[Rfam]
RNA sequence: GGAGUCGGCCGGGCAAUCGCCGCUGCAUCUUGCAGGGGAGGAAAGUCCGGGCUCCGCAGGGCAAGGUGCCAGGUAACGCCUGGGCGGCGUGAGCCGACGGAAAGUGCAACAGAGAACAGACCGCCGAACGCAUCGAGGUCGCUGCAAGGCAUCGCGAUGGCGUGGCAAGGGUGAAACGGUGCGGUAAGAGCGCACCGCGGUUCCGGUAACGGAAACGGCACGGCAAACCCCACCGGGAGCAAGACCAAAUAGGGAAGGGCUCGUCGGCAACGACGGGACGCGUGGCCCACGCGCCUUCCGGGUAGGUCGCUUGAGCGUCGCAGUGAUGCGCUGCCUAGAGGAAUGAUUGUCGGGACGCGCAAGCGUUCGCACAGAACCCGGCUUACAGGCCGACUCCCCUC
Dot-bracket structure: ((((((((((((((((((.((.(((((...))))).))....[[[.[[[[[((((...[[[[..(((((((((.....)))))(((((....)))).)((...((((.............(((((..((((............................)))))))..)).......((((((.......))))))(((.(((((....))))).)).)...))..)))))))).))))...((((......((((((....................(((((.]]]]))))))))))).....))))......(((.((((....)))).)))..........))))))).........................]]]]]]]].).))))))))))....

About this RNA: The family of this 401-nucleotide RNA sequence from Solimonas terrae is "Bacterial RNase P class A". The base pairs follow the family's consensus structure, which is taken from published work. The match comes from Rfam's covariance-model search (310 bits). Taxonomically the source falls in Solimonas (Bacteria, Pseudomonadota, Gammaproteobacteria, Nevskiaceae).